[Rfam]
RNA sequence: CGAUCCGAGGAGCGUUGCAGCGUCCCCAGCACAGGCGGGGCGUGAGGCUCGGAGUCAUCCAGCAACGACGCUCAACCACU
Dot-bracket structure: .(.(((((............((((((..........))))))......))))).).........................
RNA: SAH (S-adenosyl-L-homocysteine) riboswitch aptamer